[Rfam]
RNA sequence: AGACCUGUACCCAUCACACUUGUACUUCUUAGCAUGUGGUACAGGGAUGCUCAGCAGUGCAAGUGUGACAGGUAUGGUGUUU
Numbered sequence: 001a002g003a004c005c006u007g008u009a010c011c012c013a014u015c016a017c018a019c020u021u022g023u024a025c026u027u028c029u030u031a032g033c034a035u036g037u038g039g040u041a042c043a044g045g046g047a048u049g050c051u052c053a054g055c056a057g058u059g060c061a062a063g064u065g066u067g068a069c070a071g072g073u074a075u076g077g078u079g080u081u082u
Stems, first nucleotide, its partner, number of pairs: 002081003005077007014068013028054002031051005037045001
RNA: mir-4866 microRNA precursor family
Organism: Branchiostoma floridae